Source information
DUF805 RNA: a 66-nucleotide sequence from Tenacibaculum maritimum.
RNA sequence: AAAAAAUGGAGUCCAGAAACUAUAUAAAACGGGGUGUAACCGAAAAACCUUAAGAGUAGGAAUAAG
Number, nucleotide and partner (000 for none) at each position: 001a000002a000003a000004a000005a000006a023007u022008g021009g020010a000011g000012u000013c000014c000015a000016g000017a000018a000019a000020c009021u008022a007023u006024a000025u000026a000027a000028a000029a000030c000031g000032g000033g049034g048035u047036g000037u000038a000039a000040c060041c059042g000043a000044a000045a000046a000047a035048c034049c033050u000051u000052a000053a000054g000055a000056g000057u000058a000059g041060g040061a000062a000063u000064a000065a000066g000
The family's consensus secondary structure is taken from published work.